[Rfam]
RNA sequence: UUCUUAUCUAGAGAGGUGGAGGGACUGGCCCGAUGAAACCCAGCAACAAUUUUAAGCUAUAUAGCUUAAAAAAUGUGCUAAUUCCUGCGGUGAAAACUGAGAGAUAAGAA
Numbered sequence: 001u002u003c004u005u006a007u008c009u010a011g012a013g014a015g016g017u018g019g020a021g022g023g024a025c026u027g028g029c030c031c032g033a034u035g036a037a038a039c040c041c042a043g044c045a046a047c048a049a050u051u052u053u054a055a056g057c058u059a060u061a062u063a064g065c066u067u068a069a070a071a072a073a074u075g076u077g078c079u080a081a082u083u084c085c086u087g088c089g090g091u092g093a094a095a096a097c098u099g100a101g102a103g104a105u106a107a108g109a110a
Stems, first nucleotide, its partner, number of pairs: 001110008013041001015040003021031003025087001027085002042079004047075002050070003083102001088099004

A member of the RNA family "SAM riboswitch aptamer (S box leader)" from Tissierella sp. P1, 110 nucleotides long. The match comes from Rfam's covariance-model search (86 bits).